[Rfam]
RNA sequence: AAGGGGGAAGUCGAAAACCCAGAAAAGAGUAGGCG
Numbered sequence: 001a002a003g004g005g006g007g008a009a010g011u012c013g014a015a016a017a018c019c020c021a022g023a024a025a026a027g028a029g030u031a032g033g034c035g
Stems, first nucleotide, its partner, number of pairs: 003020003010034003
The record is a 35-nucleotide sequence from Pararcticibacter amylolyticus, which matches "DUF805b RNA" in Rfam. By type it is a cis-regulatory element. A search with the family's covariance model found it, with a score of 43 bits.